The family of this 259-nucleotide RNA sequence from Thermolongibacillus altinsuensis is "BsrG".
The base pairs follow the family's consensus structure, which was predicted with WAR.
bsrE, bsrG and bsrH pair through intermolecular interactions with antisense sRNAs. They form type I toxin/antitoxin system that includes an mRNA encoding for a short, toxic peptide (bsrE, bsrG and bsrH) and an antitoxin that is comprised of an antisense RNA. bsrG encodes a 39-amino-acid toxin, and the 180 nucleotide antisense sRNA called SR4 acts as the antitoxin (they overlap by 123 nucleotides). SR4 interaction with the 3'UTR of bsrG RNA promotes bsrG degradation and inhibits its translation. BsrG interferes with cell envelope biosynthesis, causes membrane invaginations and delocalisation of the cell wall synthesis and initiates autolysis. bsrE RNA encodes 30 amino-acid toxin peptide.
The source organism's lineage runs through Bacteria, Bacillota, Bacilli, Caryophanales and Thermolongibacillus.
The literature on the family includes a 2008 paper in Gene by Saito et al., "Novel small RNA-encoding genes in the intergenic regions of Bacillus subtilis".
[Rfam]
RNA sequence: AUCAAUAGCAGAAGUUCAAGGGUGGUCGGCUUGCCCCUAUUUCCUUUUAAAAGGGGGUGAGCAUAAUGACAGUAUUUGAGUCCCUUUCUCUUAUGAUUUCUUUCGGGAUGCUUGUGAUAGCGGUACUGUCGUUCAAUUAUAAGAAUAAAAAAUAGACCUCCCUUGAACCGCCAAUUCUAGGACGAGGUCUAUUUUACCAAUAGGCCGACUCCUUUGAGUCUGCUAUUGCAAAAGACCGGAAGUGUUGCCGCACUUUCGG
Numbered sequence: 001a002u003c004a005a006u007a008g009c010a011g012a013a014g015u016u017c018a019a020g021g022g023u024g025g026u027c028g029g030c031u032u033g034c035c036c037c038u039a040u041u042u043c044c045u046u047u048u049a050a051a052a053g054g055g056g057g058u059g060a061g062c063a064u065a066a067u068g069a070c071a072g073u074a075u076u077u078g079a080g081u082c083c084c085u086u087u088c089u090c091u092u093a094u095g096a097u098u099u100c101u102u103u104c105g106g107g108a109u110g111c112u113u114g115u116g117a118u119a120g121c122g123g124u125a126c127u128g129u130c131g132u133u134c135a136a137u138u139a140u141a142a143g144a145a146u147a148a149a150a151a152a153u154a155g156a157c158c159u160c161c162c163u164u165g166a167a168c169c170g171c172c173a174a175u176u177c178u179a180g181g182a183c184g185a186g187g188u189c190u191a192u193u194u195u196a197c198c199a200a201u202a203g204g205c206c207g208a209c210u211c212c213u214u215u216g217a218g219u220c221u222g223c224u225a226u227u228g229c230a231a232a233a234g235a236c237c238g239g240a241a242g243u244g245u246u247g248c249c250g251c252a253c254u255u256u257c258g259g
Stems, first nucleotide, its partner, number of pairs: 003228003007224003011220001015167008028157001030155002036059001039058001041056005068130007081096002106121001179194001208219004236259010